[Rfam]
RNA: mir-317 microRNA precursor family
RNA sequence: AUGGGACGGGAUUGGGGACCACCCUGUGUUUACUGAAUUCUUAGGGCCGUGAACACAGCUGGUGGUAUCUCAGUCUCUUUUCAUUA
Numbered sequence: 001a002u003g004g005g006a007c008g009g010g011a012u013u014g015g016g017g018a019c020c021a022c023c024c025u026g027u028g029u030u031u032a033c034u035g036a037a038u039u040c041u042u043a044g045g046g047c048c049g050u051g052a053a054c055a056c057a058g059c060u061g062g063u064g065g066u067a068u069c070u071c072a073g074u075c076u077c078u079u080u081u082c083a084u085u086a
Stems, first nucleotide, its partner, number of pairs: 008077005015071001016069002018066002021063003024058003028054001030052002
Dot-bracket structure: .......(((((..(((((.((((((.(.((...................)).).)))..))).)).)).).))))).........